[Rfam]
RNA sequence: GUUGAGGGGAAUGUUGUCUGGUCGGAGACCUAACACCGCGGAUCCAUGCAUGGUGGUGGAUGGUUUCGGACCAGGCUUCAUUCCCCCCAAC
Numbered sequence: 001g002u003u004g005a006g007g008g009g010a011a012u013g014u015u016g017u018c019u020g021g022u023c024g025g026a027g028a029c030c031u032a033a034c035a036c037c038g039c040g041g042a043u044c045c046a047u048g049c050a051u052g053g054u055g056g057u058g059g060a061u062g063g064u065u066u067c068g069g070a071c072c073a074g075g076c077u078u079c080a081u082u083c084c085c086c087c088c089a090a091c
Base pairs, nucleotide, nucleotide: 001091002090003089004088006086007085008084009083010082011081012080013079016076017075018074019073020072021071025067026066

A member of the RNA family "mir-166 microRNA precursor family" from Miscanthus lutarioriparius, 91 nucleotides long. Gene Ontology terms of the family: miRNA-mediated post-transcriptional gene silencing and RISC complex. Lineage of the source: Eukaryota > Magnoliopsida > Liliopsida > Panicoideae > Miscanthus. It scores 69 bits against the family's covariance model. Rfam's curators write: This family represents the plant microRNA (miRNA) precursor mir-166.